[Rfam]
RNA sequence: CUCCUUUGCGUUCACAAGUGUGUUUCUCUAUUUGGCUCUAAUGAUGGAUGCUUUGAAUGAAACACUCCAAAAUUGUUGUUGUUUCCUUUUGAGGUAUUCUUACCUUUAGCGUCAAGAGACAAACACACUCGUGCAUACAAAAGAAU
Numbered sequence: 001c002u003c004c005u006u007u008g009c010g011u012u013c014a015c016a017a018g019u020g021u022g023u024u025u026c027u028c029u030a031u032u033u034g035g036c037u038c039u040a041a042u043g044a045u046g047g048a049u050g051c052u053u054u055g056a057a058u059g060a061a062a063c064a065c066u067c068c069a070a071a072a073u074u075g076u077u078g079u080u081g082u083u084u085c086c087u088u089u090u091g092a093g094g095u096a097u098u099c100u101u102a103c104c105u106u107u108a109g110c111g112u113c114a115a116g117a118g119a120c121a122a123a124c125a126c127a128c129u130c131g132u133g134c135a136u137a138c139a140a141a142a143g144a145a146u
Stems, first nucleotide, its partner, number of pairs: 002145001004143004014132002017129009027119003031116006038109004043104001045102001046099006054091003059085001061083004065078001068075002